[Rfam]
RNA: Histidine operon leader
RNA sequence: CCAUCAUCACCAUCCCUGAUUGUCUUUCGGGCAUUUGGUGUGUUCGGAAGAUAAGACUUCCGAGCGAGUGAGUGCGAUAGAUAGCCAAAAUAACAAACCUCUCGGAAGCAAUUUCGAGAGGUUUUUUUAU
Numbered sequence: 001c002c003a004u005c006a007u008c009a010c011c012a013u014c015c016c017u018g019a020u021u022g023u024c025u026u027u028c029g030g031g032c033a034u035u036u037g038g039u040g041u042g043u044u045c046g047g048a049a050g051a052u053a054a055g056a057c058u059u060c061c062g063a064g065c066g067a068g069u070g071a072g073u074g075c076g077a078u079a080g081a082u083a084g085c086c087a088a089a090a091u092a093a094c095a096a097a098c099c100u101c102u103c104g105g106a107a108g109c110a111a112u113u114u115c116g117a118g119a120g121g122u123u124u125u126u127u128u129a130u
Base pairs, nucleotide, nucleotide: 008042009041010040012034013033015031016030017029018028019027043064044063045062046061047060048059049058050057092127093126095124096123097122098121099120100119101118102117103116104115105114106113107112